[Rfam]
RNA sequence: CGGGCGCAAGCCCGUAAAUAUGCACCCCGCGACGGUUGCCGUUCGCUGCUUGCAUGGCGCGGUUCUCGGCGUUCGACCGCGUUUCAUGGUCAACCGUCAAGCGGCUGCUGGAUGCCGAUUGCGAGCCGCGCGGGGUGCCCUCAUGAACUCUGAAGAGC
Dot-bracket structure: ((((......)))).......((((((((..(((((((((....((.....))..(((((((..............)))))))....)).)))))))...(((((...(........)......))))).))))))))....................
RNA: RT-2 RNA